[Rfam]
RNA sequence: AGCCGUGCGUUACGGUUUAGAAUUCCUACGCUUUACCGGAUGUUUAAAAUGGUAAAGCGUUUGGAUUCUGAAUCAGAAUUAAC
Number, nucleotide and partner (000 for none) at each position: 001a000002g000003c000004c000005g000006u000007g000008c000009g000010u077011u076012a000013c000014g074015g073016u072017u071018u070019a069020g068021a067022a000023u065024u064025c063026c000027u000028a060029c059030g058031c057032u056033u055034u054035a000036c052037c051038g000039g000040a000041u000042g000043u000044u000045u000046a000047a000048a000049a000050u000051g037052g036053u000054a034055a033056a032057g031058c030059g029060u028061u000062u000063g025064g024065a023066u000067u021068c020069u019070g018071a017072a016073u015074c014075a000076g011077a010078a000079u000080u000081a000082a000083c000